[Rfam]
RNA sequence: AAGCCUGCGAAGGGUGAUCGGAAAACCGGCGAAGUAGCCGUAGCCGGACGCCUUCCCGCCAAGACCUGCCAGUUGACGAACAGAAUUCACAUGAGGCCAAGAGUCGGGGACGAGCUGGCAUGUCACAGCGAAGUCCAGACUGGAAGUUUUUCCGCUCGGGGUAGAUGUGGCGAUUGGGCAGGGACAGAUCACGCU
Numbered sequence: 001a002a003g004c005c006u007g008c009g010a011a012g013g014g015u016g017a018u019c020g021g022a023a024a025a026c027c028g029g030c031g032a033a034g035u036a037g038c039c040g041u042a043g044c045c046g047g048a049c050g051c052c053u054u055c056c057c058g059c060c061a062a063g064a065c066c067u068g069c070c071a072g073u074u075g076a077c078g079a080a081c082a083g084a085a086u087u088c089a090c091a092u093g094a095g096g097c098c099a100a101g102a103g104u105c106g107g108g109g110a111c112g113a114g115c116u117g118g119c120a121u122g123u124c125a126c127a128g129c130g131a132a133g134u135c136c137a138g139a140c141u142g143g144a145a146g147u148u149u150u151u152c153c154g155c156u157c158g159g160g161g162u163a164g165a166u167g168u169g170g171c172g173a174u175u176g177g178g179c180a181g182g183g184a185c186a187g188a189u190c191a192c193g194c195u
Stems, first nucleotide, its partner, number of pairs: 002015001004013003050194002053191001060187001065182006071175005087170005096162003101157004106152001108136004114129004